[Rfam]
RNA sequence: GAGAGAGGAAGGACGGCUGCCGGGUUCAUAUAACCUGAGGAAAGUCUCCCCACCGCUAAACACGAGCACCUGUAAAGGGUGCCGGGCGAGAGCUCGGGCAGUUAACAGAUAAUGUUAACCAUGCAAACAGUGCAUGCUGGCACAGAAACGAUACCAGUGCAUGUUAAUGCUAUGAUGCCGAAAGGCUGAGGUCGCAUGCAUCCUGGAUGGAACGGCGAAUCCUCGUGGGUGCAAGUCGGUGAAGAGCAAAUAUGUUGCUCUUCCCAUUUAUUGACGCUAAGCUGAAUGCCGCCAUUGCAAGUACUCCUUAAAGAGUCAUUCUGCAUUUUCAAGAAAUGCAGGAUAUUUGCAACAACAGAAGGGAGCUUACUCUCCUCACUC
Numbered sequence: 001g002a003g004a005g006a007g008g009a010a011g012g013a014c015g016g017c018u019g020c021c022g023g024g025u026u027c028a029u030a031u032a033a034c035c036u037g038a039g040g041a042a043a044g045u046c047u048c049c050c051c052a053c054c055g056c057u058a059a060a061c062a063c064g065a066g067c068a069c070c071u072g073u074a075a076a077g078g079g080u081g082c083c084g085g086g087c088g089a090g091a092g093c094u095c096g097g098g099c100a101g102u103u104a105a106c107a108g109a110u111a112a113u114g115u116u117a118a119c120c121a122u123g124c125a126a127a128c129a130g131u132g133c134a135u136g137c138u139g140g141c142a143c144a145g146a147a148a149c150g151a152u153a154c155c156a157g158u159g160c161a162u163g164u165u166a167a168u169g170c171u172a173u174g175a176u177g178c179c180g181a182a183a184g185g186c187u188g189a190g191g192u193c194g195c196a197u198g199c200a201u202c203c204u205g206g207a208u209g210g211a212a213c214g215g216c217g218a219a220u221c222c223u224c225g226u227g228g229g230u231g232c233a234a235g236u237c238g239g240u241g242a243a244g245a246g247c248a249a250a251u252a253u254g255u256u257g258c259u260c261u262u263c264c265c266a267u268u269u270a271u272u273g274a275c276g277c278u279a280a281g282c283u284g285a286a287u288g289c290c291g292c293c294a295u296u297g298c299a300a301g302u303a304c305u306c307c308u309u310a311a312a313g314a315g316u317c318a319u320u321c322u323g324c325a326u327u328u329u330c331a332a333g334a335a336a337u338g339c340a341g342g343a344u345a346u347u348u349g350c351a352a353c354a355a356c357a358g359a360a361g362g363g364a365g366c367u368u369a370c371u372c373u374c375c376u377c378a379c380u381c
Base pairs, nucleotide, nucleotide: 001381002380003379005377006376007375008374009373010371011370012293014291015290016289017288021037022036023035024034025033042368043367044366046365047364048363049362050361051231052230053229054228056257057254058253061227062226063225064224065223066082067081068080069079070078084135086133087132138218140216141215154206155205156204157201158200159199160198161197162196163195164194177186178185235275236274237273238272239265241263242262243261

This 381-nucleotide RNA sequence from Methanosalsum zhilinae belongs to the Rfam family "Archaeal RNase P".
The base pairs follow the family's consensus structure, which is taken from published work.
The source organism's lineage runs through Archaea, Methanobacteriati, Methanobacteriota, Methanosalsum and Methanosalsum zhilinae.
Ribonuclease P (RNase P) is a ubiquitous endoribonuclease, found in archaea, bacteria and eukarya as well as chloroplasts and mitochondria. Its best characterised activity is the generation of mature 5'-ends of tRNAs by cleaving the 5'-leader elements of precursor-tRNAs.
On this family, see Brown, Nucleic Acids Res 1999: "The Ribonuclease P Database".
The family is grouped with related families in Rfam's "RNaseP clan".
Rfam classes the family as a ribozyme.
It scores 159 bits against the family's covariance model.